[Rfam]
RNA sequence: AUAAGUCUUCAGGGCAGGGUGCAAGUCCCUACCGGCGGUAUAGCCCGCGAGCCGAAAGGCUGACCUGGUGAGAUUCCGGGGCCGACAGUAUAGUCUGGAUGGAAGAAGAUGAUG
Numbered sequence: 001a002u003a004a005g006u007c008u009u010c011a012g013g014g015c016a017g018g019g020u021g022c023a024a025g026u027c028c029c030u031a032c033c034g035g036c037g038g039u040a041u042a043g044c045c046c047g048c049g050a051g052c053c054g055a056a057a058g059g060c061u062g063a064c065c066u067g068g069u070g071a072g073a074u075u076c077c078g079g080g081g082c083c084g085a086c087a088g089u090a091u092a093g094u095c096u097g098g099a100u101g102g103a104a105g106a107a108g109a110u111g112a113u114g
Stems, first nucleotide, its partner, number of pairs: 005110006017029003031094002033084002035048004043082002051060003064080005086097003
RNA: FMN riboswitch aptamer (RFN element)
Organism: bacterium 1XD21-70